[Rfam]
RNA sequence: GGCUGGUCCGAUGGCGGUGAGAUUUCAAUUGAUUGCUACAGUGAGUUACAGAACCUCUAUGUUUCUUCUCUCCCCUCCCUCACCGCCGGCCUUGACUAGCUUUUG
Numbered sequence: 001g002g003c004u005g006g007u008c009c010g011a012u013g014g015c016g017g018u019g020a021g022a023u024u025u026c027a028a029u030u031g032a033u034u035g036c037u038a039c040a041g042u043g044a045g046u047u048a049c050a051g052a053a054c055c056u057c058u059a060u061g062u063u064u065c066u067u068c069u070c071u072c073c074c075c076u077c078c079c080u081c082a083c084c085g086c087c088g089g090c091c092u093u094g095a096c097u098a099g100c101u102u103u104u105g
Base pairs, nucleotide, nucleotide: 001101002100003099004098005097006096007095008094010093011092015088016084017083018082019081020080021079035065038062039061
This 105-nucleotide RNA from Tetraodon nigroviridis belongs to the Rfam family "Y RNA". NCBI's taxonomy places the organism under Eukaryota, Gnathostomata, Tetraodontiformes, Tetraodontidae, Tetraodon. The base pairs follow the family's consensus structure, which is taken from published work. The family's RNA type in Rfam is non-coding RNA gene.